Shown here is a 102-nucleotide RNA sequence from Savagea serpentis, a member of the family "Purine riboswitch aptamer". The source organism's lineage runs through Bacteria, Bacillati, Bacilli, Caryophanaceae and Savagea. Rfam 15.1 lists 4,097 matches to the family in 1,411 species. Riboswitches are metabolite binding domains within certain messenger RNAs that serve as precision sensors for their corresponding targets. Its family is annotated with purine nucleobase biosynthetic process in the Gene Ontology.

RNA sequence: UGAAUGUAUUAAAUAGCGCAUCGUAUAAAUUUGAGAAUAUGGCUCAAACGUUUCUACUGAAGUUCCGUAAAAACUUCAACUACGAUCCAAUAAAACCUUAGA
Numbered sequence: 001u002g003a004a005u006g007u008a009u010u011a012a013a014u015a016g017c018g019c020a021u022c023g024u025a026u027a028a029a030u031u032u033g034a035g036a037a038u039a040u041g042g043c044u045c046a047a048a049c050g051u052u053u054c055u056a057c058u059g060a061a062g063u064u065c066c067g068u069a070a071a072a073a074c075u076u077c078a079a080c081u082a083c084g085a086u087c088c089a090a091u092a093a094a095a096c097c098u099u100a101g102a
Stems, first nucleotide, its partner, number of pairs: 018088001020086006030048006058078007